[Rfam]
The family of this 104-nucleotide RNA sequence from Acidovorax delafieldii is "SAH (S-adenosyl-L-homocysteine) riboswitch aptamer". The source organism's lineage runs through Bacteria, Pseudomonadota, Betaproteobacteria, Acidovorax and Acidovorax delafieldii. The match comes from Rfam's covariance-model search (58 bits).
RNA sequence: CGGUCCAAGGAGCGUUGCAACGCGGCACCCUGCUGCGUCAGGCUUGGGCCAGGCGCCGGCAAAGACACGCCGCCGCGCCCUGCCGACAACGACGCUCACCUGUU
Numbered sequence: 001c002g003g004u005c006c007a008a009g010g011a012g013c014g015u016u017g018c019a020a021c022g023c024g025g026c027a028c029c030c031u032g033c034u035g036c037g038u039c040a041g042g043c044u045u046g047g048g049c050c051a052g053g054c055g056c057c058g059g060c061a062a063a064g065a066c067a068c069g070c071c072g073c074c075g076c077g078c079c080c081u082g083c084c085g086a087c088a089a090c091g092a093c094g095c096u097c098a099c100c101u102g103u104u
Stems, first nucleotide, its partner, number of pairs: 002050007021037006
Dot-bracket structure: .(((((((............((((((.....))))))......)))))))......................................................